[Rfam]
RNA sequence: AAUGAUGGUUUUAUCGCUUUUCAUUAUAGGUCAUAUGGGACUUUUUUUCUACACUGAAAAAGGCUCCAUAAUCUCUACAGUGGAUUUACCCACUACAGAUAUUAUAGAGCC
Numbered sequence: 001a002a003u004g005a006u007g008g009u010u011u012u013a014u015c016g017c018u019u020u021u022c023a024u025u026a027u028a029g030g031u032c033a034u035a036u037g038g039g040a041c042u043u044u045u046u047u048u049c050u051a052c053a054c055u056g057a058a059a060a061a062g063g064c065u066c067c068a069u070a071a072u073c074u075c076u077a078c079a080g081u082g083g084a085u086u087u088a089c090c091c092a093c094u095a096c097a098g099a100u101a102u103u104a105u106a107g108a109g110c111c
Stems, first nucleotide, its partner, number of pairs: 001025005008017002028043005062111005068105005074099002079094005